[Rfam]
RNA sequence: CGACGUUUCAAGGGGGGCUGGAAAGGCCGGCUGAGAUAUAGAUCUAAUAAAAUCUAUGACCCUUUAACCUGAUCUGGGUAAUGCCAGCGUAGGGAUGAUGGUAUAGAGUUUU
Number, nucleotide and partner (000 for none) at each position: 001c000002g000003a000004c000005g000006u100007u000008u098009c097010a096011a063012g062013g061014g060015g000016g000017g031018c030019u029020g028021g027022a000023a000024a000025g000026g000027c021028c020029g019030g018031c017032u000033g000034a000035g000036a000037u000038a057039u056040a055041g054042a053043u000044c000045u000046a000047a000048u000049a000050a000051a000052a000053u042054c041055u040056a039057u038058g000059a000060c014061c013062c012063u011064u000065u000066a000067a000068c093069c092070u091071g090072a000073u000074c087075u086076g085077g084078g000079u000080a000081a000082u000083g000084c077085c076086a075087g074088c000089g000090u071091a070092g069093g068094g000095a000096u010097g009098a008099u000100g006101g000102u000103a000104u000105a000106g000107a000108g000109u000110u000111u000112u000
The record is a 112-nucleotide RNA sequence from Sporomusa silvacetica, which matches "TPP riboswitch aptamer (THI element)" in Rfam. NCBI's taxonomy places the organism under Bacteria, Negativicutes, Selenomonadales, Sporomusaceae, Sporomusa silvacetica.